[Rfam]
RNA: FIE3 (ftz instability element 3') element
Organism: Ficedula albicollis
RNA sequence: UGUUAAUGGAACAAUGCUUGAAGACAGAAUGAUUACUUGUUUCUUAUAUUUUGUAUAUAUCAUU
Numbered sequence: 001u002g003u004u005a006a007u008g009g010a011a012c013a014a015u016g017c018u019u020g021a022a023g024a025c026a027g028a029a030u031g032a033u034u035a036c037u038u039g040u041u042u043c044u045u046a047u048a049u050u051u052u053g054u055a056u057a058u059a060u061c062a063u064u
Base pairs, nucleotide, nucleotide: 020043022042023041024040025039026037027036